[Rfam]
RNA sequence: ACAUACACUGAGUAGCCAGAUGAUUAUGAUCUCUGAAUGCAUAAUAAUCUGGCCAUUCAGUGUAUAU
Number, nucleotide and partner (000 for none) at each position: 001a000002c000003a000004u064005a063006c062007a061008c060009u059010g058011a057012g056013u055014a000015g053016c052017c051018a000019g049020a048021u047022g000023a045024u044025u043026a042027u041028g040029a000030u000031c000032u000033c000034u000035g000036a000037a000038u000039g000040c028041a027042u026043a025044a024045u023046a000047a021048u020049c019050u000051g017052g016053c015054c000055a013056u012057u011058c010059a009060g008061u007062g006063u005064a004065u000066a000067u000
RNA: mir-9256 microRNA precursor family